RNA sequence: CUUCCUACCACAGCCUCGCGACUAAUGAGAACACUGAUGUUCAUGUUAUCAAUUUUCUCAUUAGCCGCGCGAAUCGGUGUAGCUGAAGAGGCGUUAAUAAAACAAUUAAUUACGGAUCAUAGCUUAGCAUUUAAGUUAAGUAUAAUUCGAGUAUUACUUCAACUUUAAUAUAACUUUUAGAAGAAAAGGGGCCGGUGGCCCCUUUUC
Dot-bracket structure: ((((.....(((....((((.(((((((.............................)))))))...))))......)))....))))......(..................................................................).........................((((((...)))))).....